[Rfam]
RNA sequence: GGAGACCCCUUAUGGGGCAGGACUUGCUUCAUUGGGGUUUUGGUGCUCACUGAGUCUGCCCCUUGAGUGUAUUGCU
Numbered sequence: 001g002g003a004g005a006c007c008c009c010u011u012a013u014g015g016g017g018c019a020g021g022a023c024u025u026g027c028u029u030c031a032u033u034g035g036g037g038u039u040u041u042g043g044u045g046c047u048c049a050c051u052g053a054g055u056c057u058g059c060c061c062c063u064u065g066a067g068u069g070u071a072u073u074g075c076u
Base pairs, nucleotide, nucleotide: 001075003073004072007069009067010066011065012064014062015061016060017059018058019057021056022055023054029053030052031051033049034048035047036046037044038043
The record is a 76-nucleotide RNA sequence from Myotis lucifugus, which matches "mir-9229 microRNA precursor family" in Rfam. A search with the family's covariance model found it, with a score of 72 bits. Lineage of the source: Eukaryota > Opisthokonta > Eumetazoa > Sarcopterygii > Myotis.